[Rfam]
Nucleotides: 071
Base pairs, nucleotide, nucleotide: 008039011038012037016071017070018069019068020067021066022065024034025033043060044059045058046057047056048055049054
Number, partner (000 for none) and nucleotide at each position: 001000a002000a003000a004000g005000g006000u007000u008039g009000a010000g011038g012037c013000c014000a015000c016071a017070g018069u019068a020067g021066a022065a023000a024034u025033g026000c027000u028000c029000a030000u031000g032000a033025u034024g035000c036000a037012g038011c039008u040000a041000g042000c043060c044059a045058g046057a047056u048055u049054c050000c051000a052000a053000u054049g055048a056047a057046u058045c059044u060043g061000c062000a063000a064000a065022u066021u067020c068019u069018g070017c071016u

Notes:
Mammalian CPEB3 ribozyme: a 71-nucleotide sequence from Crocodylus porosus. Taxonomically the source falls in Crocodylus (Eukaryota, Deuterostomia, Vertebrata, Longirostres).